Rfam assigns this 117-nucleotide RNA sequence from Andreesenella acetica to the family "Group II catalytic intron D1-D4-2". Rfam describes the family as follows. Group II introns are found in rRNA, tRNA and mRNA of organelles in fungi, plants and protists, and also in mRNA in bacteria.
RNA sequence: GGGACAGGGUUUCCCGAAAUCCAUAUUUAGGUGUGGGUUUCAAACUGCCAUUGGGUGCUGCAACCAAAAGUUAUGGUUCGGAGCAUAAUUGGAAAAGGCUAGUGAAUUAGGUUAGUG
Numbered sequence: 001g002g003g004a005c006a007g008g009g010u011u012u013c014c015c016g017a018a019a020u021c022c023a024u025a026u027u028u029a030g031g032u033g034u035g036g037g038u039u040u041c042a043a044a045c046u047g048c049c050a051u052u053g054g055g056u057g058c059u060g061c062a063a064c065c066a067a068a069a070g071u072u073a074u075g076g077u078u079c080g081g082a083g084c085a086u087a088a089u090u091g092g093a094a095a096a097g098g099c100u101a102g103u104g105a106a107u108u109a110g111g112u113u114a115g116u117g
Base pairs, nucleotide, nucleotide: 001015002014003013004012016041017040018039019038020037021036023034024033025032026031048092049091050089051088052087053086055079057077058076059075062072063071064070098116099115100114101113102112